[Rfam]
RNA sequence: ACUUUCCCUAGAGACACUGCAGAUGUGGCUGCUGUGUCACCUGUGCAUCGGUAGGAGGCAGAGAGGAGAGAGGCUAUGUCUACACUCAGGGUUCUGCCCUGUGAGUCUCUGAAUGAUUGGCAGCCUAACACU
Numbered sequence: 001a002c003u004u005u006c007c008c009u010a011g012a013g014a015c016a017c018u019g020c021a022g023a024u025g026u027g028g029c030u031g032c033u034g035u036g037u038c039a040c041c042u043g044u045g046c047a048u049c050g051g052u053a054g055g056a057g058g059c060a061g062a063g064a065g066g067a068g069a070g071a072g073g074c075u076a077u078g079u080c081u082a083c084a085c086u087c088a089g090g091g092u093u094c095u096g097c098c099c100u101g102u103g104a105g106u107c108u109c110u111g112a113a114u115g116a117u118u119g120g121c122a123g124c125c126u127a128a129c130a131c132u
Base pairs, nucleotide, nucleotide: 002061003060005058006057007055008054009053010052013049014048019046020045021044025040026039027038028037029036068129071126072125073124074123075122077120083115084114086112087111088110089109090107091106092105093104094103

A member of the RNA family "Small nucleolar RNA SNORA17", 132 nucleotides long. The sequence is in the family's curated seed alignment. The family's consensus secondary structure was predicted with RNAalifold. A reference for the family is Ofengand and Bakin (1997), "Mapping to nucleotide resolution of pseudouridine residues in large subunit ribosomal RNAs from representative eukaryotes, prokaryotes, archaebacteria, mitochondria and chloroplasts", J Mol Biol. The family's RNA type in Rfam is H/ACA-box small nucleolar RNA. snoRNA ACA 17 belongs to the H/ACA family of snoRNAs and is predicted to guide pseudouridylation of the 28S rRNA at positions U4659 and U4598.